[Rfam]
RNA: SAM riboswitch aptamer (S box leader)
RNA sequence: GUUUUAUACAGAAGCGGCGAGAGACUAGGCUCCCUGACCCGCUGGCAACCUUCCUUCCUGUGAAAGGUGCCAAUUCCUACCCACUGCGGUUUUGGCCGCGCUGGGGCAUAUGACUC
Numbered sequence: 001g002u003u004u005u006a007u008a009c010a011g012a013a014g015c016g017g018c019g020a021g022a023g024a025c026u027a028g029g030c031u032c033c034c035u036g037a038c039c040c041g042c043u044g045g046c047a048a049c050c051u052u053c054c055u056u057c058c059u060g061u062g063a064a065a066g067g068u069g070c071c072a073a074u075u076c077c078u079a080c081c082c083a084c085u086g087c088g089g090u091u092u093u094g095g096c097c098g099c100g101c102u103g104g105g106g107c108a109u110a111u112g113a114c115u116c
Stems, first nucleotide, its partner, number of pairs: 001116001004113005013043005021032003026079004044071004049067002051063002075108001080105004